[Rfam]
RNA sequence: ACCAAGAUGAUGAAACAGAUUUUUUAAUAUCUAAAUUUCAUGUAGAACCUCAUAUCAUGCCUUCAAAGUCCUCUGAUUGCU
Numbered sequence: 001a002c003c004a005a006g007a008u009g010a011u012g013a014a015a016c017a018g019a020u021u022u023u024u025u026a027a028u029a030u031c032u033a034a035a036u037u038u039c040a041u042g043u044a045g046a047a048c049c050u051c052a053u054a055u056c057a058u059g060c061c062u063u064c065a066a067a068g069u070c071c072u073c074u075g076a077u078u079g080c081u
Stems, first nucleotide, its partner, number of pairs: 001081001003079003
This 81-nucleotide RNA from Prunus dulcis belongs to the Rfam family "Small nucleolar RNA R160". snoR160 is a C/D box small nucleolar RNA, which acts as a methylation guide for 25S ribosomal RNA in plants. snoR160 has been alternatively named snoZ270 in rice. Pairs were carried over by alignment from the consensus structure. Its family is annotated with nucleolus and RNA processing in the Gene Ontology. Rfam classes the family as a C/D-box small nucleolar RNA. For this family Rfam cites "The high diversity of snoRNAs in plants: identification and comparative study of 120 snoRNA genes from Oryza sativa" (Chen et al., Nucleic Acids Res, 2003). A search with the family's covariance model found it, with a score of 46 bits.